[Rfam]
RNA sequence: GGCUGGUCUGAAGGCAGUGAGGAUCUCACUUGAUUGUUCACAGUCAGUUACAGAUUGAACUCCUUGUUCUACUUUCCCCCUUCUCACUACUGCACUCGACUAGUCUUAA
Numbered sequence: 001g002g003c004u005g006g007u008c009u010g011a012a013g014g015c016a017g018u019g020a021g022g023a024u025c026u027c028a029c030u031u032g033a034u035u036g037u038u039c040a041c042a043g044u045c046a047g048u049u050a051c052a053g054a055u056u057g058a059a060c061u062c063c064u065u066g067u068u069c070u071a072c073u074u075u076c077c078c079c080c081u082u083c084u085c086a087c088u089a090c091u092g093c094a095c096u097c098g099a100c101u102a103g104u105c106u107u108a109a
Stems, first nucleotide, its partner, number of pairs: 001105008010097002014093002016088006042074002046070002